[Rfam]
RNA: Flavo-1 RNA
RNA sequence: CUGUAAUAAGGAUUGCAGCGGUAUCCUUUUUUUGAGGAACGAAAAAAAAGAUUUAGCGUAAAGCCUGAUUACUU
Number, nucleotide and partner (000 for none) at each position: 001c000002u000003g000004u000005a000006a000007u000008a000009a066010g065011g064012a000013u062014u061015g000016c000017a000018g057019c056020g000021g000022u000023a052024u051025c050026c000027u000028u000029u047030u046031u045032u044033u043034g000035a000036g000037g000038a000039a000040c000041g000042a000043a033044a032045a031046a030047a029048a000049a000050g025051a024052u023053u000054u000055a000056g019057c018058g000059u000060a000061a014062a013063g000064c011065c010066u009067g000068a000069u000070u000071a000072c000073u000074u000